[Rfam]
RNA sequence: GGUUGAGUGUAUUCGUUAUAAAUACACUUUCAAGAGUUUAGGCUUCUGGGGUGGGAAGUC
Number, nucleotide and partner (000 for none) at each position: 001g000002g000003u033004u032005g031006a028007g027008u026009g025010u024011a023012u022013u021014c000015g000016u000017u000018a000019u000020a000021a013022a012023u011024a010025c009026a008027c007028u006029u000030u000031c005032a004033a003034g000035a000036g000037u000038u000039u000040a000041g060042g059043c058044u057045u056046c055047u054048g000049g000050g000051g000052u000053g000054g047055g046056a045057a044058g043059u042060c041